Rfam assigns this 161-nucleotide sequence from Acetanaerobacterium elongatum to the family "glmS glucosamine-6-phosphate activated ribozyme aptamer".
Rfam classes the family as a riboswitch.
Taxonomically the source falls in Acetanaerobacterium (Bacteria, Bacillati, Clostridia, Oscillospiraceae).
It scores 65 bits against the family's covariance model.
Pairs were carried over by alignment from the consensus structure, which is taken from published work.
Rfam's curators write: This entry contains a glucosamine-6-phosphate activated ribozyme that is found in the mRNA for GlmS. GlmS is an enzyme that uses fructose-6-phosphate and glutamine to generate glucosamine-6-phosphate. The ribozyme catalyses self cleavage of the glmS mRNA that is thought to regulate GlmS activity.
[Rfam]
RNA sequence: GGGUACCUUAAAGCGCCAAGCACCAUGCGGAUUUGCCGUAUGGUUAACGAGGAGAGAGGAGUAUCGAAUCUUCGGCGGAUGCCUCUCCGUUUUCUGCCUGAAACGAAGCUAGCAGACAAACUGUCGGGAAACCGAAAAACAAAGCUGCGGCAUAGGCAGAC
Numbered sequence: 001g002g003g004u005a006c007c008u009u010a011a012a013g014c015g016c017c018a019a020g021c022a023c024c025a026u027g028c029g030g031a032u033u034u035g036c037c038g039u040a041u042g043g044u045u046a047a048c049g050a051g052g053a054g055a056g057a058g059g060a061g062u063a064u065c066g067a068a069u070c071u072u073c074g075g076c077g078g079a080u081g082c083c084u085c086u087c088c089g090u091u092u093u094c095u096g097c098c099u100g101a102a103a104c105g106a107a108g109c110u111a112g113c114a115g116a117c118a119a120a121c122u123g124u125c126g127g128g129a130a131a132c133c134g135a136a137a138a139a140c141a142a143a144g145c146u147g148c149g150g151c152a153u154a155g156g157c158a159g160a161c
Base pairs, nucleotide, nucleotide: 022044023043024042025041026040027039028038030036055086056085057084058083059082064075065074066073067072088105089104090103091102092101093100108151109150110149112148113147114146122137124135125134126133127132